Background: This 141-nucleotide sequence from Mammaliicoccus stepanovicii belongs to the Rfam family "Ribosomal protein L10 leader". It is annotated as a cis-regulatory leader. Rfam's curators write: This family is a putative r-protein leader autoregulatory structure found in B. subtilis and other low-GC Gram-positive bacteria. It is located in the 5' untranslated regions of mRNAs encoding ribosomal proteins L10 and L12 (rplJ-rplL). A Rho-independent transcription terminator structure that is probably involved in regulation is included at the 3' end. The source organism's lineage runs through Bacteria, Bacillati, Caryophanales, Staphylococcaceae and Mammaliicoccus.

RNA sequence: UGGAUGUGUAAUAUUUAACCUAAGACAGUAGGAGUUCUUCUUAGAACUUAAAAUCCAAUCCUGCCGAGGCUUAAAUUGACUUGAACGUAUAAAUUUCAAGCACUUUUUGCCGUGGGUAAAAAGUGCUUUUUUGUUGAGAUA
Numbered sequence: 001u002g003g004a005u006g007u008g009u010a011a012u013a014u015u016u017a018a019c020c021u022a023a024g025a026c027a028g029u030a031g032g033a034g035u036u037c038u039u040c041u042u043a044g045a046a047c048u049u050a051a052a053a054u055c056c057a058a059u060c061c062u063g064c065c066g067a068g069g070c071u072u073a074a075a076u077u078g079a080c081u082u083g084a085a086c087g088u089a090u091a092a093a094u095u096u097c098a099a100g101c102a103c104u105u106u107u108u109g110c111c112g113u114g115g116g117u118a119a120a121a122a123g124u125g126c127u128u129u130u131u132u133g134u135u136g137a138g139a140u141a
Stems, first nucleotide, its partner, number of pairs: 028064006034047005100126010